[Rfam]
RNA sequence: GAAAAUUAGCUAUUUUAGUAUUUAUCUAGCAGGUUUCCUCAAGGAGAAAGCCUCC
Numbered sequence: 001g002a003a004a005a006u007u008a009g010c011u012a013u014u015u016u017a018g019u020a021u022u023u024a025u026c027u028a029g030c031a032g033g034u035u036u037c038c039u040c041a042a043g044g045a046g047a048a049a050g051c052c053u054c055c
Base pairs, nucleotide, nucleotide: 032052033051034050035049036048038046039045040044
RNA: U7 small nuclear RNA